[Rfam]
RNA: RNase MRP
RNA sequence: UGAGUUUUCCUUGCUUGUCUCUCGGGGUCACAAACGAGCUCCUGGUAGCUCUUAAAUUGCCACCCUGGGUAAAGUCCCCGGGCCUAGGAUAGAAAGUAUCAAGGCGUAAAACAAUUUGUACUUGUACAAAUUCGCCUAUAUUUCGCGGUAUUUCGCCUUGCGUAUUCCAAUGAAGAGAGACCCGCUCUAAGGGUCUCGAAUUGUUGCGCUCGGUUGACUGCGGAAAUGUGCCAGAGUUUGCUAAGAUAUGGACGAGUAGUGGGCGUGUCUGCGUGCACGCCUACUACACGGAAUGGGGCUUACUUAGGGAAAUUC
Number, nucleotide and partner (000 for none) at each position: 001u000002g315003a314004g313005u312006u311007u310008u309009c308010c307011u306012u000013g000014c256015u255016u254017g253018u252019c251020u000021c000022u068023c067024g066025g065026g064027g063028u062029c000030a000031c000032a000033a000034a000035c000036g051037a050038g049039c048040u047041c000042c000043u000044g000045g000046u000047a040048g039049c038050u037051c036052u000053u000054a000055a000056a000057u000058u000059g000060c000061c000062a028063c027064c026065c025066u024067g023068g022069g000070u000071a000072a301073a300074g299075u000076c298077c297078c296079c295080g000081g000082g000083c000084c000085u000086a000087g000088g100089a099090u098091a097092g000093a000094a000095a000096g000097u091098a090099u089100c088101a000102a000103g000104g000105c000106g000107u000108a000109a000110a000111a000112c000113a000114a000115u000116u000117u000118g000119u000120a000121c000122u000123u000124g000125u000126a000127c000128a000129a000130a000131u000132u000133c000134g000135c000136c000137u000138a000139u225140a000141u223142u000143u000144c000145g221146c220147g219148g218149u217150a000151u000152u000153u000154c000155g214156c213157c212158u000159u000160g000161c000162g000163u000164a000165u000166u000167c000168c203169a202170a201171u200172g000173a000174a000175g000176a000177g000178a000179g000180a000181c000182c000183c000184g194185c193186u192187c191188u000189a000190a000191g187192g186193g185194u184195c000196u000197c000198g000199a000200a171201u170202u169203g168204u000205u000206g000207c000208g000209c000210u000211c000212g157213g156214u155215u000216g000217a149218c148219u147220g146221c145222g000223g141224a000225a139226a000227u000228g000229u000230g000231c000232c000233a000234g000235a000236g000237u000238u000239u000240g000241c000242u000243a000244a000245g000246a000247u000248a000249u000250g000251g019252a018253c017254g016255a015256g014257u000258a285259g284260u283261g282262g281263g280264c279265g278266u277267g276268u275269c000270u000271g000272c000273g000274u000275g268276c267277a266278c265279g264280c263281c262282u261283a260284c259285u258286a000287c000288a000289c000290g000291g000292a000293a000294u000295g079296g078297g077298g076299c074300u073301u072302a000303c000304u000305u000306a011307g010308g009309g008310a007311a006312a005313u004314u003315c002